Rfam assigns this 446-nucleotide RNA from Photobacterium aquimaris to the family "cspA thermoregulator". The family's consensus secondary structure is taken from published work. NCBI's taxonomy places the organism under Bacteria, Gammaproteobacteria, Vibrionales, Vibrionaceae, Photobacterium.

[Rfam]
RNA sequence: CUCGUUCUGUUGUUCAGGACGUUAUUAAAUGCAACACCAAGUAACAGUUAAACCUUUAGCUACAUCAACGUUGUCGUUUUGUAUCUCAGUGUUUCCCUUGUUUUGGCAGUAACAUUAAUAAUUUAACCACUUAAUACAUCGCAUUUUAGCGGUUAAUUAAUCAUCUAUAUAAGGGGCAUCACAUGUCUAAUACAUCAACUGGUUUAGUAAAAUGGUUUAACGAAGAGAAAGGUUUUGGUUUCAUUACUCAAGACAACGGUGGUGCUGACGUAUUCGUUCACUUCCGUGCUAUCGCUUCUGAAGGCUUCAAGACAUUAGCCGAAGGCCAAAAAGUGUCUUUCGAAGUAGAACAAGGUCAAAAAGGCCUACAAGCUGCAAACGUUGUAGCUUUAUAAUUUAUCCUCGCUGAUAAAUAACAAAAUGCUGGCUAUGGCCGGCAUUUUUUA
Numbered sequence: 001c002u003c004g005u006u007c008u009g010u011u012g013u014u015c016a017g018g019a020c021g022u023u024a025u026u027a028a029a030u031g032c033a034a035c036a037c038c039a040a041g042u043a044a045c046a047g048u049u050a051a052a053c054c055u056u057u058a059g060c061u062a063c064a065u066c067a068a069c070g071u072u073g074u075c076g077u078u079u080u081g082u083a084u085c086u087c088a089g090u091g092u093u094u095c096c097c098u099u100g101u102u103u104u105g106g107c108a109g110u111a112a113c114a115u116u117a118a119u120a121a122u123u124u125a126a127c128c129a130c131u132u133a134a135u136a137c138a139u140c141g142c143a144u145u146u147u148a149g150c151g152g153u154u155a156a157u158u159a160a161u162c163a164u165c166u167a168u169a170u171a172a173g174g175g176g177c178a179u180c181a182c183a184u185g186u187c188u189a190a191u192a193c194a195u196c197a198a199c200u201g202g203u204u205u206a207g208u209a210a211a212a213u214g215g216u217u218u219a220a221c222g223a224a225g226a227g228a229a230a231g232g233u234u235u236u237g238g239u240u241u242c243a244u245u246a247c248u249c250a251a252g253a254c255a256a257c258g259g260u261g262g263u264g265c266u267g268a269c270g271u272a273u274u275c276g277u278u279c280a281c282u283u284c285c286g287u288g289c290u291a292u293c294g295c296u297u298c299u300g301a302a303g304g305c306u307u308c309a310a311g312a313c314a315u316u317a318g319c320c321g322a323a324g325g326c327c328a329a330a331a332a333g334u335g336u337c338u339u340u341c342g343a344a345g346u347a348g349a350a351c352a353a354g355g356u357c358a359a360a361a362a363g364g365c366c367u368a369c370a371a372g373c374u375g376c377a378a379a380c381g382u383u384g385u386a387g388c389u390u391u392a393u394a395a396u397u398u399a400u401c402c403u404c405g406c407u408g409a410u411a412a413a414u415a416a417c418a419a420a421a422u423g424c425u426g427g428c429u430a431u432g433g434c435c436g437g438c439a440u441u442u443u444u445u446a
Stems, first nucleotide, its partner, number of pairs: 004020006025251002028248001030246002047241001050240002053237001054232004063227001065226002069222005076216003082185003086181001095175007103121003187202003191198001254348001256346002267275002279335005287328002289325002293318001297314001300313001353367003357363001370390002373387004395414003399410003418443011